[Rfam]
RNA sequence: ACAUCUGAGUCUUUACAGUUCCUUGUAGGGAUGGAAACACUUGGUGCUACAGCAGUGGGAAUCCAGAUGUUUUUUUAGUUUUUCCACUAAUUUGGGACUCAUCUCUACACCUCUGUGAUACUU
Numbered sequence: 001a002c003a004u005c006u007g008a009g010u011c012u013u014u015a016c017a018g019u020u021c022c023u024u025g026u027a028g029g030g031a032u033g034g035a036a037a038c039a040c041u042u043g044g045u046g047c048u049a050c051a052g053c054a055g056u057g058g059g060a061a062u063c064c065a066g067a068u069g070u071u072u073u074u075u076u077a078g079u080u081u082u083u084c085c086a087c088u089a090a091u092u093u094g095g096g097a098c099u100c101a102u103c104u105c106u107a108c109a110c111c112u113c114u115g116u117g118a119u120a121c122u123u
Stems, first nucleotide, its partner, number of pairs: 002046004013037002016034001018032002021029002052116004057111001065104005072097001084095003
Small nucleolar RNA SNORA55: a 123-nucleotide RNA from Turnix velox. It scores 48 bits against the family's covariance model. The family's consensus secondary structure was predicted with PFOLD. ACA55 is a member of the H/ACA class of snoRNA that guide the sites of modification of uridines to pseudouridines.